[Rfam]
RNA sequence: UCAGUUCAUGUAAACAUCCUACACUCAGCUGUGGUGCCUGCGAUGGGCUGGGGGCCGGAUGUUUACCUCAGCUGU
Numbered sequence: 001u002c003a004g005u006u007c008a009u010g011u012a013a014a015c016a017u018c019c020u021a022c023a024c025u026c027a028g029c030u031g032u033g034g035u036g037c038c039u040g041c042g043a044u045g046g047g048c049u050g051g052g053g054g055c056c057g058g059a060u061g062u063u064u065a066c067c068u069c070a071g072c073u074g075u
Stems, first nucleotide, its partner, number of pairs: 002074005008068001010066010022054001024052007
RNA: mir-30 microRNA precursor family